[Rfam]
RNA sequence: AACUUAUCAAGAGUGGUGGAGGGACUGGCCCUGUGAAACCCAGCAACCGAUUUAAUAAAAUUUUUAUGAAGAUUCGGUGCUAAUUCCUGCAGCUUUAGCUGAUAGAUAAGAG
Dot-bracket structure: ..((((((....(.(((...(((.[.[[)))......))))((((.(((.((.................)).)..))))))...(]].]((((....))))..)))))))..

The record is a 112-nucleotide sequence from Clostridium chromiireducens, which matches "SAM riboswitch aptamer (S box leader)" in Rfam.
About the family: The SAM riboswitch is found upstream of a number of genes which code for proteins involved in methionine or cysteine biosynthesis in Gram-positive bacteria. The SAM riboswitch acts at the level of transcription termination control.
It scores 84 bits against the family's covariance model.